SAM riboswitch aptamer (S box leader): a 121-nucleotide RNA sequence from Zunongwangia atlantica. The base pairs follow the family's consensus structure, which is taken from published work. The organism belongs to Zunongwangia atlantica, within Bacteria. Rfam links the family to the GO term regulation of gene expression.
RNA sequence: GCGUUAUCAAGAAAGGUUGAGGGAUUAGACCCUGUGAAGCCUUAGCAACCCUCCUCAACCAAAAGGGUUUUAGGGAGAAGGUGCUACCUUCUACUACGUGAUUUACGUAGAUAGAUAACAA
Numbered sequence: 001g002c003g004u005u006a007u008c009a010a011g012a013a014a015g016g017u018u019g020a021g022g023g024a025u026u027a028g029a030c031c032c033u034g035u036g037a038a039g040c041c042u043u044a045g046c047a048a049c050c051c052u053c054c055u056c057a058a059c060c061a062a063a064a065g066g067g068u069u070u071u072a073g074g075g076a077g078a079a080g081g082u083g084c085u086a087c088c089u090u091c092u093a094c095u096a097c098g099u100g101a102u103u104u105a106c107g108u109a110g111a112u113a114g115a116u117a118a119c120a121a
Stems, first nucleotide, its partner, number of pairs: 003119006013043005021032003026093004044085004049081002051077004089113001094110006